[Rfam]
RNA sequence: UGAGGUCGCUAAGUAGUAGUGCCGCAGGUAAUUGCUAUUAAAUCUCAUAUUACCUGGACAAGGCUACUUAACGUUCUUU
Numbered sequence: 001u002g003a004g005g006u007c008g009c010u011a012a013g014u015a016g017u018a019g020u021g022c023c024g025c026a027g028g029u030a031a032u033u034g035c036u037a038u039u040a041a042a043u044c045u046c047a048u049a050u051u052a053c054c055u056g057g058a059c060a061a062g063g064c065u066a067c068u069u070a071a072c073g074u075u076c077u078u079u
Base pairs, nucleotide, nucleotide: 002078003077004076005075007073010070011069012068013067014066015065016064017063025056026055027054028053029052030051

A member of the RNA family "mir-252 microRNA precursor family" from Daphnia pulex, 79 nucleotides long.
Clan: mir-252 microRNA precursor family.
A reference for the family is Li et al. (2009), "Direct sequencing and expression analysis of a large number of miRNAs in Aedes aegypti and a multi-species survey of novel mosquito miRNAs", BMC Genomics.
Taxonomically the source falls in Daphnia (Eukaryota, Panarthropoda, Phyllopoda, Cladocera).
Rfam's curators put it in the seed alignment.